mir-5928 microRNA precursor family: a 75-nucleotide RNA sequence from Haemonchus placei. The family's consensus secondary structure was predicted with RNAalifold. Lineage of the source: Eukaryota > Rhabditina > Rhabditomorpha > Strongyloidea > Haemonchus.
RNA sequence: GGCACAAGAUUGAAUAAGUGUAGUUUAGAAGAGUCAGGUGAUCUUUCUAAUCUACUCUACUUCAAAUUUGGGCCC
Numbered sequence: 001g002g003c004a005c006a007a008g009a010u011u012g013a014a015u016a017a018g019u020g021u022a023g024u025u026u027a028g029a030a031g032a033g034u035c036a037g038g039u040g041a042u043c044u045u046u047c048u049a050a051u052c053u054a055c056u057c058u059a060c061u062u063c064a065a066a067u068u069u070g071g072g073c074c075c
Base pairs, nucleotide, nucleotide: 001074002073003072005070006069007068008067011064012063013062014061017058018057020055021054022053023052025050026049027048028047029046030045033042034041035040